[Rfam]
RNA sequence: GGUGCAGAUGAUGAAAAACUAGACAGGGACAUCAGAACUGUUAGGAGUAUCAAAUAUGAUGAUAUGUCUAAGAUGGGAAUCUCUUUGAUGCACU
Numbered sequence: 001g002g003u004g005c006a007g008a009u010g011a012u013g014a015a016a017a018a019c020u021a022g023a024c025a026g027g028g029a030c031a032u033c034a035g036a037a038c039u040g041u042u043a044g045g046a047g048u049a050u051c052a053a054a055u056a057u058g059a060u061g062a063u064a065u066g067u068c069u070a071a072g073a074u075g076g077g078a079a080u081c082u083c084u085u086u087g088a089u090g091c092a093c094u
Stems, first nucleotide, its partner, number of pairs: 002093005
Small nucleolar RNA R44/J54/Z268 family: a 94-nucleotide RNA sequence from Beta vulgaris. Taxonomically the source falls in Beta vulgaris (Eukaryota, Spermatophyta, Magnoliopsida, Betoideae).